[Rfam]
RNA sequence: AUCAGAAACUCCUCACACACUAAUUUCUGAUAACCAAACACCCUUUUCUCUAAAUUAGGGUGUUUUUUAAUGCAACUA
Numbered sequence: 001a002u003c004a005g006a007a008a009c010u011c012c013u014c015a016c017a018c019a020c021u022a023a024u025u026u027c028u029g030a031u032a033a034c035c036a037a038a039c040a041c042c043c044u045u046u047u048c049u050c051u052a053a054a055u056u057a058g059g060g061u062g063u064u065u066u067u068u069a070a071u072g073c074a075a076c077u078a
Base pairs, nucleotide, nucleotide: 001031002030003029004028005027006026007025008024036065037064038063039062040061041060042059043058044057

This 78-nucleotide RNA from Prochlorococcus marinus belongs to the Rfam family "Cyanobacterial functional RNA 10". Lineage of the source: Bacteria > Bacillati > Prochlorococcaceae > Prochlorococcus > Prochlorococcus marinus. By type it is a small RNA. For this family Rfam cites "The challenge of regulation in a minimal photoautotroph: non-coding RNAs in Prochlorococcus" (Steglich et al., PLoS Genet, 2008).